Shown here is a 57-nucleotide sequence, a member of the family "M23 RNA". Rfam's curators put it in the seed alignment.
[Rfam]
RNA sequence: CGGCGUGCCGCGGGCCGGAAAACGCGCGGCGGCCGGCCGUGCGCCGGCCCGGAAAGG
Numbered sequence: 001c002g003g004c005g006u007g008c009c010g011c012g013g014g015c016c017g018g019a020a021a022a023c024g025c026g027c028g029g030c031g032g033c034c035g036g037c038c039g040u041g042c043g044c045c046g047g048c049c050c051g052g053a054a055a056g057g
Base pairs, nucleotide, nucleotide: 007030008029009028010027011026012025032048033047034046035045036044037043